[Rfam]
RNA sequence: AGAACGCACAUUAAUUAUCCUUGAGGCCAUGGAAUAAACAAAACCCAUGCAAAAAUAAGUUAGCACACCCUAGAAUGGUUCUAGCAUGAUUACUAACCCAUGUCUUUGAUACCAUUUGAAGGGAAAAGCCC
Number, nucleotide and partner (000 for none) at each position: 001a000002g000003a000004a000005c000006g000007c000008a000009c121010a000011u119012u118013a117014a116015u000016u114017a000018u000019c000020c000021u000022u108023g107024a106025g105026g104027c000028c102029a101030u100031g099032g098033a000034a000035u000036a000037a000038a000039c000040a000041a000042a000043a000044c000045c000046c000047a000048u086049g085050c000051a000052a000053a080054a079055a000056u077057a076058a000059g000060u073061u072062a071063g070064c000065a000066c000067a000068c000069c000070c063071u062072a061073g060074a000075a000076u057077g056078g000079u054080u053081c000082u000083a000084g000085c049086a048087u000088g000089a000090u000091u000092a000093c000094u000095a000096a000097c000098c032099c031100a030101u029102g028103u000104c026105u025106u024107u023108g022109a000110u000111a000112c000113c000114a016115u000116u014117u013118g012119a011120a000121g009122g000123g000124a000125a000126a000127a000128g000129c000130c000131c000
Rfam assigns this 131-nucleotide RNA sequence from Vitis rotundifolia to the family "MIR845_2 microRNA precursor family". Gene Ontology terms of the family: miRNA-mediated post-transcriptional gene silencing and RISC complex. The family's consensus secondary structure was predicted with WAR. A search with the family's covariance model found it, with a score of 126 bits.